Rfam assigns this 243-nucleotide sequence from Bacillus sp. B-jedd to the family "BsrG". The source organism's lineage runs through Bacteria, Bacillati, Bacillota, Caryophanales and Bacillus.

[Rfam]
RNA sequence: ACAAUUGGAUCGGUUUGUCCAAGGGUGGCCCGGUCACUCCUAGGGAAAGGGGUGAUGCCGGUGACAGUAUACGAAUCGCUGACGCUAAUGAUUGCAUUCGCGGGAUUCGUUGUCACAAUACUGGCUUUUUCACAAAAAAAAUAAUCCACCCUUGAGUAGUCGCUAAGGUGGAUUAACUGCCCCAAUGCCGGCCCCUUGCGAGAACCGCCUGUUGGAAGACCGGACAUGGUACCAGCAUGUUCG
Dot-bracket structure: .((((.((..((((.(.(.((((((.((.....((((((((......)))))))).......(.(((((......(((..........)))...........(..........)....))))).)...................))..)))))).)..((...............)).......).))))(..(.......)..)..)).))))......((((((((.(...).))))))))

Rfam 15.1 lists 614 matches to the family in 343 species. The base pairs follow the family's consensus structure, which was predicted with WAR.